[Rfam]
RNA sequence: UGUUAUGGCCCCUGACUAUGAUAACUCUGUAGGCAUUACUUCGAACACGUAAAAGAAUUGAACAACACAUGAAAGCCCUUCUACAAGUGAUUAGCCUGGUCGUGAUUAGCGUGGUGGUGGUUAUUAACCUACCGUGCGGGGCAACGCUUGGAGAAAGAAAGGCUUAAAAAUCAAGCCUCGAAUCCGAAAAAACCCCCGCACCGAAAGGUCCGGGGGUUUUUUUUCGACCCGGGGAAAUAUCAGUAAAUCUGCAAGGAACAAACAAUGAACAGUAGCAUAAAAUUCUGUUGUUCCCGUCAGGA
Number, nucleotide and partner (000 for none) at each position: 001u023002g022003u021004u020005a019006u018007g016008g000009c014010c000011c000012c000013u000014g009015a000016c007017u000018a006019u005020g004021a003022u002023a001024a000025c000026u000027c000028u000029g066030u065031a000032g063033g000034c000035a000036u057037u056038a000039c055040u054041u053042c049043g048044a000045a000046c000047a000048c043049g042050u000051a000052a000053a041054a040055g039056a037057a036058u000059u000060g000061a000062a000063c032064a000065a030066c029067a000068c000069a000070u000071g000072a000073a000074a000075g000076c000077c256078c255079u254080u000081c000082u251083a250084c000085a000086a244087g000088u000089g241090a240091u239092u000093a000094g000095c234096c233097u232098g230099g229100u000101c111102g110103u109104g000105a000106u000107u000108a000109g103110c102111g101112u000113g133114g132115u131116g130117g129118u000119g128120g000121u126122u000123a000124u000125u000126a121127a000128c119129c117130u116131a115132c114133c113134g000135u152136g000137c150138g149139g148140g147141g000142c000143a000144a000145c000146g000147c140148u139149u138150g137151g000152a135153g000154a000155a000156a183157g000158a000159a000160a000161g179162g177163c000164u175165u174166a000167a000168a000169a000170a000171u000172c000173a000174a165175g164176c000177c162178u000179c161180g000181a000182a000183u156184c000185c000186g000187a222188a221189a220190a219191a218192a217193c216194c215195c214196c213197c212198g211199c000200a209201c208202c207203g000204a000205a000206a000207g202208g201209u200210c000211c198212g197213g196214g195215g194216g193217u192218u191219u190220u189221u188222u187223u000224u000225c000226g000227a000228c000229c099230c098231g000232g097233g096234g095235a000236a000237a000238u000239a091240u090241c089242a000243g000244u086245a000246a000247a000248u000249c000250u083251g082252c000253a000254a079255g078256g077257a289258a288259c287260a286261a000262a284263c000264a000265a278266u277267g276268a000269a000270c000271a000272g000273u000274a000275g000276c267277a266278u265279a000280a000281a000282a000283u000284u262285c000286u260287g259288u258289u257290g000291u000292u000293c000294c000295c000296g000297u000298c000299a000300g000301g000302a000